The record is a 149-nucleotide RNA from Streptosporangium subroseum, which matches "c-di-AMP riboswitch aptamer (ydaO/yuaA leader)" in Rfam. This family represents a conserved RNA structure found upstream of the ydaO and yuaA genes in Bacillus subtilis and related genes in other bacteria. Its family is annotated with regulation of gene expression and cyclic-di-AMP binding in the Gene Ontology. The match comes from Rfam's covariance-model search (89 bits). Taxonomically the source falls in Streptosporangium (Bacteria, Bacillati, Actinomycetota, Actinomycetes).
RNA sequence: CGGCCAGCCGCGUCGAAUCCCAAGGUCAGUAGGGCCGCGGGAGCCGGGGACCCACCUCGUGGGGUGAAUCCGCCGCGAACGUGCGGCGGUAGGGCAACUCCACCGCCCGAACCCGUCAGCUAACCCGGUAGACGAGAUGGAGAGGAGAU
Numbered sequence: 001c002g003g004c005c006a007g008c009c010g011c012g013u014c015g016a017a018u019c020c021c022a023a024g025g026u027c028a029g030u031a032g033g034g035c036c037g038c039g040g041g042a043g044c045c046g047g048g049g050a051c052c053c054a055c056c057u058c059g060u061g062g063g064g065u066g067a068a069u070c071c072g073c074c075g076c077g078a079a080c081g082u083g084c085g086g087c088g089g090u091a092g093g094g095c096a097a098c099u100c101c102a103c104c105g106c107c108c109g110a111a112c113c114c115g116u117c118a119g120c121u122a123a124c125c126c127g128g129u130a131g132a133c134g135a136g137a138u139g140g141a142g143a144g145g146a147g148a149u
Base pairs, nucleotide, nucleotide: 011134012133013132014131018042019041020040043129044128045127046126047125048124053061054060062114063113064112070089071088072087073086074085075084092108093107094106095105